[Rfam]
RNA sequence: GGACCACCCGGAUACGGGUCAAGGCCAUACGGACAGCCGGGUCCACUGCCGA
Numbered sequence: 001g002g003a004c005c006a007c008c009c010g011g012a013u014a015c016g017g018g019u020c021a022a023g024g025c026c027a028u029a030c031g032g033a034c035a036g037c038c039g040g041g042u043c044c045a046c047u048g049c050c051g052a
Stems, first nucleotide, its partner, number of pairs: 001044005006019005
RNA: Streptococcus sRNA SpF59 (ldcC RNA)
Organism: Lachnoclostridium sp. An14